RNA sequence: CGAUAAUGCAACACGAACUCAACUUGGAGACUGAAGAAUGUUUUGUUUCUAUUGUACAGCUAAUA
Numbered sequence: 001c002g003a004u005a006a007u008g009c010a011a012c013a014c015g016a017a018c019u020c021a022a023c024u025u026g027g028a029g030a031c032u033g034a035a036g037a038a039u040g041u042u043u044u045g046u047u048u049c050u051a052u053u054g055u056a057c058a059g060c061u062a063a064u065a
Base pairs, nucleotide, nucleotide: 025051026050027049028048029047030046031045033042
The family of this 65-nucleotide RNA from Drosophila hydei is "FIE3 (ftz instability element 3') element". On this family, see Riedl and Jacobs-Lorena, Mol Cell Biol 1996: "Determinants of Drosophila fushi tarazu mRNA instability". From the family's description: The fushi tarazu gene is essential for the establishment of the Drosophila embryonic body plan. Rfam's curators put it in the seed alignment. It is annotated as a cis-regulatory element.